[Rfam]
RNA sequence: AUUAAAAAUAAACUCCGAGCAAAAGUGUCUAAGAAAAUUUUAUGAUACUGCGCCAAAGCGUAAUGCUUUCGGGUUAGACUGGAAACGGUAUAGCCUUCUGUUUGAAAAGGAGCAUAAAUUUCACGAGC
Numbered sequence: 001a002u003u004a005a006a007a008a009u010a011a012a013c014u015c016c017g018a019g020c021a022a023a024a025g026u027g028u029c030u031a032a033g034a035a036a037a038u039u040u041u042a043u044g045a046u047a048c049u050g051c052g053c054c055a056a057a058g059c060g061u062a063a064u065g066c067u068u069u070c071g072g073g074u075u076a077g078a079c080u081g082g083a084a085a086c087g088g089u090a091u092a093g094c095c096u097u098c099u100g101u102u103u104g105a106a107a108a109g110g111a112g113c114a115u116a117a118a119u120u121u122c123a124c125g126a127g128c
Base pairs, nucleotide, nucleotide: 004121006119013112014111015110016109019053020052024049025048026047027046028045029044033041034040035039055069056068057067058066059065071096072095073094074093075092076091078089079088080087081086097105098104
RNA: Molybdenum/Tungsten riboswitch aptamer (Moco RNA motif)